RNA sequence: CACUUAUCUAUUUUUGAUUGUUGCUCAGAAAGCCCUUAUAAUUAACCAGUUGGCUUUCGAGCAAUUAUCAAAGCCAAAUAAGUG
Numbered sequence: 001c002a003c004u005u006a007u008c009u010a011u012u013u014u015u016g017a018u019u020g021u022u023g024c025u026c027a028g029a030a031a032g033c034c035c036u037u038a039u040a041a042u043u044a045a046c047c048a049g050u051u052g053g054c055u056u057u058c059g060a061g062c063a064a065u066u067a068u069c070a071a072a073g074c075c076a077a078a079u080a081a082g083u084g
Base pairs, nucleotide, nucleotide: 001084002083003082004081005080006079007078012073013072014071015070016069017068018067020065021064022063023062024061025060026059028058029057030056031055032054033053034052
mir-315 microRNA precursor family: an 84-nucleotide sequence from Drosophila persimilis. It is one of the family's seed sequences.